[Rfam]
Nucleotides: 102
Stems, first nucleotide, its partner, number of pairs: 009023004057091004061082002064079001066077003
Number, partner (000 for none) and nucleotide at each position: 001000g002000g003000u004000u005000u006000c007000u008000a009023u010022u011021g012020g013000g014000a015000u016000a017000a018000a019000u020012c021011c022010a023009a024000u025000c026000a027000a028000c029000u030000c031000a032000a033000u034000u035000u036000a037000a038000u039000a040000g041000a042000a043000a044000a045000a046000a047000a048000g049000a050000a051000g052000c053000a054000a055000u056000a057091u058090c059089c060088c061082a062081u063000u064079g065000g066077u067076a068075a069000c070000a071000a072000a073000u074000g075068u076067u077066a078000a079064c080000c081062a082061u083000u084000a085000a086000g087000c088060g089059g090058g091057a092000u093000a094000a095000a096000u097000c098000c099000u100000a101000u102000u
This 102-nucleotide RNA sequence from Frankenia pulverulenta belongs to the Rfam family "Plastid-rps12 3UTR RNA".
The family's RNA type in Rfam is cis-regulatory element.
Rfam's curators write: Plastid rpl20 is a non-coding RNA (ncRNA) recognised in plastids. It was found in the three prime untranslated region (3UTR) of rps12 gene, its 3UTR location sugest a role in transcript maduration.
Lineage of the source: Eukaryota > Viridiplantae > Streptophyta > Magnoliopsida > Frankenia.